The family of this 64-nucleotide RNA from Streptomyces sp. SAT1 is "Fluoride riboswitch aptamer (crcB RNA motif)". It scores 46 bits against the family's covariance model. Pairs were carried over by alignment from the consensus structure, which is taken from published work.
[Rfam]
Nucleotides: 064
Stems, first nucleotide, its partner, number of pairs: 010025004016055006032045004
Number, partner (000 for none) and nucleotide at each position: 001000c002000a003000u004000c005000g006000c007000c008000a009000u010025g011024g012023c013022g014000a015000u016055g017054g018053g019052g020051c021050u022013c023012g024011c025010c026000a027000c028000a029000a030000c031000c032045g033044c034043a035042g036000g037000a038000c039000c040000u041000c042035c043034u044033g045032c046000u047000g048000a049000u050021g051020g052019c053018c054017u055016c056000u057000a058000c059000c060000g061000g062000u063000a064000a